[Rfam]
RNA sequence: GUUUAUUUUUGGAGUGUCUGCUGUAUAAUUGGAUUUAAUGAAAUGUUUAGAGGUGCAGUAGGCAUGAUUUUGAGUAAGU
Numbered sequence: 001g002u003u004u005a006u007u008u009u010u011g012g013a014g015u016g017u018c019u020g021c022u023g024u025a026u027a028a029u030u031g032g033a034u035u036u037a038a039u040g041a042a043a044u045g046u047u048u049a050g051a052g053g054u055g056c057a058g059u060a061g062g063c064a065u066g067a068u069u070u071u072g073a074g075u076a077a078g079u
Stems, first nucleotide, its partner, number of pairs: 001079008011069002014065013030049005
Source information
Rfam assigns this 79-nucleotide RNA from Suricata suricatta to the family "mir-1902 microRNA precursor family". Rfam links the family to the GO terms RISC complex and miRNA-mediated post-transcriptional gene silencing. The source organism's lineage runs through Eukaryota, Tetrapoda, Eutheria, Feliformia and Suricata. Pairs were carried over by alignment from the consensus structure, which was predicted with RNAalifold.